[Rfam]
Rfam assigns this 129-nucleotide sequence from Peromyscus maniculatus to the family "Small nucleolar RNA SNORA4". The base pairs follow the family's consensus structure, which was predicted with PFOLD. The match comes from Rfam's covariance-model search (69 bits). By type it is an H/ACA-box small nucleolar RNA. Rfam describes the family as follows. ACA4 is a member of the H/ACA class of snoRNA that guide the sites of modification of uridines to pseudouridines. Taxonomically the source falls in Peromyscus maniculatus (Eukaryota, Vertebrata, Teleostomi, Dipnotetrapodomorpha).
RNA sequence: AUACCAGAAGCUAAUUUGGGGCAAUUAUUACCUUUACCAACUUGGGCAGUUUGGCGGAAUGAGUAAGUCUACACUCCAGAAUGGGUUAUCUCGCUUAGUGUGAUUCAUUGCUAUCUUGUAGCCCACACU
Numbered sequence: 001a002u003a004c005c006a007g008a009a010g011c012u013a014a015u016u017u018g019g020g021g022c023a024a025u026u027a028u029u030a031c032c033u034u035u036a037c038c039a040a041c042u043u044g045g046g047c048a049g050u051u052u053g054g055c056g057g058a059a060u061g062a063g064u065a066a067g068u069c070u071a072c073a074c075u076c077c078a079g080a081a082u083g084g085g086u087u088a089u090c091u092c093g094c095u096u097a098g099u100g101u102g103a104u105u106c107a108u109u110g111c112u113a114u115c116u117u118g119u120a121g122c123c124c125a126c127a128c129u
Stems, first nucleotide, its partner, number of pairs: 004054005012049001015046003018042002020038002023035001026030001067123001069121005080109010091098001